[Rfam]
RNA sequence: AUAGAAACACCGGGCGGCAGGAUGAGAACCUCAAGGUUCGACUUGAGCGCGCAGCGCGAAAGAACGGCGCAGCGCAGCGGAGCCGGCCCCGCAGGGGCGAGGCCGCAGGCCGAGUAAUCCUGCCGCCCCAGCCA
Numbered sequence: 001a002u003a004g005a006a007a008c009a010c011c012g013g014g015c016g017g018c019a020g021g022a023u024g025a026g027a028a029c030c031u032c033a034a035g036g037u038u039c040g041a042c043u044u045g046a047g048c049g050c051g052c053a054g055c056g057c058g059a060a061a062g063a064a065c066g067g068c069g070c071a072g073c074g075c076a077g078c079g080g081a082g083c084c085g086g087c088c089c090c091g092c093a094g095g096g097g098c099g100a101g102g103c104c105g106c107a108g109g110c111c112g113a114g115u116a117a118u119c120c121u122g123c124c125g126c127c128c129c130a131g132c133c134a
Base pairs, nucleotide, nucleotide: 015125016124017123018122019121020120021119023117037093039091040090044058045057065085066084067083068082070080
RNA: RtT RNA
Organism: Thiohalobacter thiocyanaticus